[Rfam]
Nucleotides: 067
Stems, first nucleotide, its partner, number of pairs: 004064001010058003015053003020049010
Number, partner (000 for none) and nucleotide at each position: 001000a002000c003000a004064a005000g006000u007000u008000c009000c010058g011057g012056a013000c014000c015053g016052u017051c018000g019000g020049u021048c022047u023046a024045c025044c026043g027042a028041g029040c030000a031000g032000u033000a034000u035000c036000a037000c038000u039000c040029g041028c042027u043026c044025g045024g046023u047022g048021g049020a050000a051017g052016a053015u054000u055000u056012u057011c058010u059000c060000u061000u062000c063000g064004u065000c066000g067000u